[Rfam]
RNA sequence: CCUCCUUUUCUUGGCAUACACAGGUUGAUCAGUACAUGUGUAUGUAAUGUUCGGAGGUAGAGCAUGUUUCCAGUGCUAUGUCUUCGGUGCUAGUCCGUUCCUUGGACUGGUUCUAUCCUCAAUCUCUGGCACAAAA
Number, nucleotide and partner (000 for none) at each position: 001c057002c056003u055004c054005c053006u000007u000008u000009u000010c000011u000012u000013g000014g000015c044016a043017u042018a041019c040020a039021c000022a037023g000024g035025u034026u000027g000028a000029u000030c000031a000032g000033u000034a025035c024036a000037u022038g000039u020040g019041u018042a017043u016044g015045u000046a000047a000048u000049g000050u000051u000052c000053g005054g004055a003056g002057g001058u000059a000060g000061a000062g000063c000064a000065u000066g000067u000068u000069u000070c000071c128072a127073g126074u000075g124076c000077u000078a000079u000080g000081u000082c000083u000084u000085c000086g000087g000088u000089g000090c110091u109092a108093g107094u106095c105096c104097g000098u000099u000100c000101c000102u000103u000104g096105g095106a094107c093108u092109g091110g090111u000112u000113c000114u000115a000116u000117c000118c000119u000120c000121a000122a000123u000124c075125u000126c073127u072128g071129g000130c000131a000132c000133a000134a000135a000136a000